[Rfam]
RNA sequence: GCUCUGUGAUGAGCCCCAUGCGUGUCAUCUGAGCCUGGCUUCCUUGUGGGCUCAGCCCAGGUGGUGUUCUACUGCCCAGGGCUGUAGUCUGGCCUGCCAGGGAGGUCUAGGCAAAGGAUCAGUCUUUGUGUUCUGAGAGC
Numbered sequence: 001g002c003u004c005u006g007u008g009a010u011g012a013g014c015c016c017c018a019u020g021c022g023u024g025u026c027a028u029c030u031g032a033g034c035c036u037g038g039c040u041u042c043c044u045u046g047u048g049g050g051c052u053c054a055g056c057c058c059a060g061g062u063g064g065u066g067u068u069c070u071a072c073u074g075c076c077c078a079g080g081g082c083u084g085u086a087g088u089c090u091g092g093c094c095u096g097c098c099a100g101g102g103a104g105g106u107c108u109a110g111g112c113a114a115a116g117g118a119u120c121a122g123u124c125u126u127u128g129u130g131u132u133c134u135g136a137g138a139g140c
Base pairs, nucleotide, nucleotide: 001140002139003138004137042102043101044100045099046098048094
RNA: Small nucleolar RNA SNORD10
Organism: Tupaia belangeri